The record is a 73-nucleotide RNA sequence from Pachyramphus minor, which matches "tRNA" in Rfam. The base pairs follow the family's consensus structure, which is taken from published work.
RNA sequence: CCCCUGGUGGUCUAGUGGUUAAGGACACAGCACUGUAACUGCCGAGGCCCGGGUUCGAUUCCCGGUCGGGGAA
Numbered sequence: 001c002c003c004c005u006g007g008u009g010g011u012c013u014a015g016u017g018g019u020u021a022a023g024g025a026c027a028c029a030g031c032a033c034u035g036u037a038a039c040u041g042c043c044g045a046g047g048c049c050c051g052g053g054u055u056c057g058a059u060u061c062c063c064g065g066u067c068g069g070g071g072a073a
Stems, first nucleotide, its partner, number of pairs: 002071006010026004028044001030042003049065005